[Rfam]
RNA sequence: CAUAACUUAUGUUCAAGUCUAUCCGUCUACUAAGCCUACUACUACACGUAGAAUUGAUGCGCGGCAGGCUGGUGCACGGUAUUCAGAACUGAAUUCGGGCCACUCCAGAUUAAAACCCGCGCACUACUGCGCGGGUUUUUUU
Numbered sequence: 001c002a003u004a005a006c007u008u009a010u011g012u013u014c015a016a017g018u019c020u021a022u023c024c025g026u027c028u029a030c031u032a033a034g035c036c037u038a039c040u041a042c043u044a045c046a047c048g049u050a051g052a053a054u055u056g057a058u059g060c061g062c063g064g065c066a067g068g069c070u071g072g073u074g075c076a077c078g079g080u081a082u083u084c085a086g087a088a089c090u091g092a093a094u095u096c097g098g099g100c101c102a103c104u105c106c107a108g109a110u111u112a113a114a115a116c117c118c119g120c121g122c123a124c125u126a127c128u129g130c131g132c133g134g135g136u137u138u139u140u141u142u
Base pairs, nucleotide, nucleotide: 006099007098008097012093013092014091015090023079024078025077026076028074029073030072031071032070039067040066042064043063047061048060049059050058112139113138114137115136116135117134118133119132120131121130122129
Leucine operon leader: a 142-nucleotide RNA sequence from Sodalis glossinidius.
The literature on the family includes a 1982 paper in Annu Rev Genet by Kolter and Yanofsky, "Attenuation in amino acid biosynthetic operons".
The sequence is in the family's curated seed alignment.
Rfam's curators write: At least 6 amino acid operons are known to be regulated by attenuation. In each a leader sequence of 150-200 bp is found upstream of the first gene in the operon. This leader sequence can assume two different secondary structures known as the terminator and the anti-terminator structure.
By type it is a cis-regulatory leader.
Rfam links the family to the GO term leucine biosynthetic process.